RNA sequence: UAGGUGGUAUCGUAAUGAACCAUACUAUAAAAAAGGAAUCUUCAGCUGUGAAGGAUCAAUAUAGCUAUAUGUUAAUACUGGUAUUAUAUCCGCUUAGAUCUAUGAUGGACUGAGACGGGAGG
Number, nucleotide and partner (000 for none) at each position: 001u027002a026003g025004g023005u022006g021007g020008u019009a000010u018011c017012g000013u000014a000015a000016u000017g011018a010019a008020c007021c006022a005023u004024a000025c003026u002027a001028u000029a000030a000031a000032a000033a000034a000035g000036g000037a000038a000039u000040c000041u000042u000043c000044a000045g000046c000047u000048g000049u000050g000051a000052a000053g000054g000055a000056u000057c000058a000059a000060u000061a000062u000063a000064g000065c000066u000067a000068u000069a000070u000071g000072u000073u000074a000075a000076u000077a000078c000079u000080g000081g000082u000083a000084u000085u000086a000087u000088a000089u000090c118091c117092g116093c114094u113095u112096a111097g110098a000099u109100c108101u107102a000103u000104g000105a000106u000107g101108g100109a099110c097111u096112g095113a094114g093115a000116c092117g091118g090119g000120a000121g000122g000
RNA: pan motif
Organism: Pelosinus sp. UFO1